[Rfam]
RNA sequence: AAAUCAGCGGGGAAAGAAGACCCUGUUGAGCUUCACUCUAGUCCGGCUCUGUGAGACGACUUGGGGGGUGUAGCAUAGGUGGGAGCUCCGGCGCCCUUGAAAUACCACUACCCUCGAUGUUGUCUUGCUUAUUCCGUUAUGCUUCUUCUUUGUUGCUUUCCCCUUUCUCGGGCGGGAGACAGGGCCAGGUGGGGAGUUUGACUGGGGCGGUACAUCUGUUAAAGGAUAACGCAGGUGUCCCAAGGCGAGCUCAGUGAGGACAGAAAUCUCACGUUGACCAAAAGGGGAAAAGCUCGCUUGAUUUUGAUUUUCAGUAAAAAUACAAACUGUGCAAGCAUGGCCUAUCGAUCCUUUUUGCCCGCGAGACGUGCGGCUAGAGGUGUCAGAAAAGUUACCACAGGGAUAACUGGCUUGUGGCAGCCAAGCGUUCAUAGCGACGUUGCUUUUUGAUCCUUCGAUGUCGGCUCUUCCUAUCAUUGAGAUGCAGAAGUCUCAAAGUGUCGGAUUGUUCACCCGCUAAUAGGGAACGUGAGCUGGGUUUAGACCGUCGUGAGACAGGUUAGUUUUACCCUACUGAUGUCC
Numbered sequence: 001a002a003a004u005c006a007g008c009g010g011g012g013a014a015a016g017a018a019g020a021c022c023c024u025g026u027u028g029a030g031c032u033u034c035a036c037u038c039u040a041g042u043c044c045g046g047c048u049c050u051g052u053g054a055g056a057c058g059a060c061u062u063g064g065g066g067g068g069u070g071u072a073g074c075a076u077a078g079g080u081g082g083g084a085g086c087u088c089c090g091g092c093g094c095c096c097u098u099g100a101a102a103u104a105c106c107a108c109u110a111c112c113c114u115c116g117a118u119g120u121u122g123u124c125u126u127g128c129u130u131a132u133u134c135c136g137u138u139a140u141g142c143u144u145c146u147u148c149u150u151u152g153u154u155g156c157u158u159u160c161c162c163c164u165u166u167c168u169c170g171g172g173c174g175g176g177a178g179a180c181a182g183g184g185c186c187a188g189g190u191g192g193g194g195a196g197u198u199u200g201a202c203u204g205g206g207g208c209g210g211u212a213c214a215u216c217u218g219u220u221a222a223a224g225g226a227u228a229a230c231g232c233a234g235g236u237g238u239c240c241c242a243a244g245g246c247g248a249g250c251u252c253a254g255u256g257a258g259g260a261c262a263g264a265a266a267u268c269u270c271a272c273g274u275u276g277a278c279c280a281a282a283a284g285g286g287g288a289a290a291a292g293c294u295c296g297c298u299u300g301a302u303u304u305u306g307a308u309u310u311u312c313a314g315u316a317a318a319a320a321u322a323c324a325a326a327c328u329g330u331g332c333a334a335g336c337a338u339g340g341c342c343u344a345u346c347g348a349u350c351c352u353u354u355u356u357g358c359c360c361g362c363g364a365g366a367c368g369u370g371c372g373g374c375u376a377g378a379g380g381u382g383u384c385a386g387a388a389a390a391g392u393u394a395c396c397a398c399a400g401g402g403a404u405a406a407c408u409g410g411c412u413u414g415u416g417g418c419a420g421c422c423a424a425g426c427g428u429u430c431a432u433a434g435c436g437a438c439g440u441u442g443c444u445u446u447u448u449g450a451u452c453c454u455u456c457g458a459u460g461u462c463g464g465c466u467c468u469u470c471c472u473a474u475c476a477u478u479g480a481g482a483u484g485c486a487g488a489a490g491u492c493u494c495a496a497a498g499u500g501u502c503g504g505a506u507u508g509u510u511c512a513c514c515c516g517c518u519a520a521u522a523g524g525g526a527a528c529g530u531g532a533g534c535u536g537g538g539u540u541u542a543g544a545c546c547g548u549c550g551u552g553a554g555a556c557a558g559g560u561u562a563g564u565u566u567u568a569c570c571c572u573a574c575u576g577a578u579g580u581c582c
Base pairs, nucleotide, nucleotide: 001580003578004577005576006575007574010572011571012570014567015566022401023400024399025398027397028396029393030392031391032390033389035197036196037195038194042189043188045186046185047184048183051128052127053126054125055124056123057122058121059120060119061117062116063115064114065113066112067111078109079108080107081106082105085092086091132177133176134175135174136173141145162172163171164170200213201211202210203209214236215235216234217233218232219231239340240339245297246296247295248294249293250292251277252276254272255271256270257269258268259267278287279286302326303325304324307321308320309319310318328337329336330335351379352378353377354376359373360372361371362370410451412449414448416444417443418442419441420440421439425435426434462537463535464534465533466532467529468526469525470524471523472522475500476499478495479494480493481492482491483490502516503515504514506512543561544560545559546558547556548555549554
RNA: Eukaryotic large subunit ribosomal RNA, nucleotides 2260 to 2841
Organism: Babesia bovis